[Rfam]
RNA: Small nucleolar RNA Z157/R69/R10
Organism: Citrus x clementina
RNA sequence: AAGAGUGCUAUGAGGAUGCAAUUUUUCGUGGACUAGAGUUUCUGAUCUGGGUUUCACUCCUAGUAGUUGAAGACUAACCCUUGGCUGUCUGAGCACCUUU
Numbered sequence: 001a002a003g004a005g006u007g008c009u010a011u012g013a014g015g016a017u018g019c020a021a022u023u024u025u026u027c028g029u030g031g032a033c034u035a036g037a038g039u040u041u042c043u044g045a046u047c048u049g050g051g052u053u054u055c056a057c058u059c060c061u062a063g064u065a066g067u068u069g070a071a072g073a074c075u076a077a078c079c080c081u082u083g084g085c086u087g088u089c090u091g092a093g094c095a096c097c098u099u100u
Stems, first nucleotide, its partner, number of pairs: 001100003005096004039072004046065001047063005